RNA sequence: GAGGAAUUGUGCGGCGUGUAGUUGAGGAACACAUAGCCCCGGCACUGGUCGAUGGCAUGGAACAGCGGGUUCCAGUCGAACAUGGCCACCAUGUAGGCGGGCAGGGAAUUCGCCACGAACAUCUUGCCCGAGGCGAUCAUGUUGGCCCGCUG
Number, nucleotide and partner (000 for none) at each position: 001g000002a034003g032004g000005a000006a000007u029008u028009g000010u026011g000012c024013g023014g022015c000016g000017u000018g000019u000020a000021g000022u014023u013024g012025a000026g010027g000028a008029a007030c000031a000032c003033a000034u002035a000036g056037c055038c054039c000040c051041g050042g049043c048044a000045c000046u000047g000048g043049u042050c041051g040052a000053u000054g038055g037056c036057a000058u000059g000060g000061a000062a000063c152064a151065g150066c149067g148068g000069g081070u080071u079072c078073c000074a000075g000076u000077c000078g072079a071080a070081c069082a000083u000084g000085g146086c145087c144088a143089c000090c141091a140092u139093g138094u000095a000096g000097g000098c132099g000100g129101g128102c126103a125104g124105g123106g122107a000108a000109u118110u117111c000112g000113c000114c000115a000116c000117g110118a109119a000120c000121a000122u106123c105124u104125u103126g102127c000128c101129c100130g000131a000132g098133g000134c000135g000136a000137u000138c093139a092140u091141g090142u000143u088144g087145g086146c085147c000148c067149g066150c065151u064152g063
This 152-nucleotide RNA from Pseudooceanicola batsensis belongs to the Rfam family "Ruegeria cis2 sRNA". The literature on the family includes a 2016 paper in Front Microbiol by Rivers et al., "Experimental Identification of Small Non-Coding RNAs in the Model Marine Bacterium Ruegeria pomeroyi DSS-3". Taxonomically the source falls in Pseudooceanicola batsensis (Bacteria, Pseudomonadota, Alphaproteobacteria, Paracoccaceae). The match comes from Rfam's covariance-model search (116 bits). The family's RNA type in Rfam is small RNA. The base pairs follow the family's consensus structure, which was predicted with RNAfold.